[Rfam]
RNA sequence: UAUAAUUUAAUAGCUUGGUCAAAGACAGCAGGCAGCCGCGAGGCUUGAAAGGCGUUCCGUCGCCGCCCGCCGAGGUCAGCACGAACAGAUUUGAUGUUUUGUGUACCCUCUUGUGUCUUUGCACAAGAGGGUACUUUAUUUUUGAU
Numbered sequence: 001u002a003u004a005a006u007u008u009a010a011u012a013g014c015u016u017g018g019u020c021a022a023a024g025a026c027a028g029c030a031g032g033c034a035g036c037c038g039c040g041a042g043g044c045u046u047g048a049a050a051g052g053c054g055u056u057c058c059g060u061c062g063c064c065g066c067c068c069g070c071c072g073a074g075g076u077c078a079g080c081a082c083g084a085a086c087a088g089a090u091u092u093g094a095u096g097u098u099u100u101g102u103g104u105a106c107c108c109u110c111u112u113g114u115g116u117c118u119u120u121g122c123a124c125a126a127g128a129g130g131g132u133a134c135u136u137u138a139u140u141u142u143u144g145a146u
Base pairs, nucleotide, nucleotide: 028070029069031067032066033065035045037043106131107130108129109128110127111126112125113124114123115122
This 146-nucleotide RNA sequence from Butyricicoccus pullicaecorum belongs to the Rfam family "Ribosomal protein L10 leader".
Lineage of the source: Bacteria > Bacillati > Bacillota > Butyricicoccaceae > Butyricicoccus pullicaecorum.
Rfam describes the family as follows. This family is a putative r-protein leader autoregulatory structure found in B. subtilis and other low-GC Gram-positive bacteria. It is located in the 5' untranslated regions of mRNAs encoding ribosomal proteins L10 and L12 (rplJ-rplL). A Rho-independent transcription terminator structure that is probably involved in regulation is included at the 3' end.
The match comes from Rfam's covariance-model search (51 bits).
Its family is annotated with regulation of gene expression in the Gene Ontology.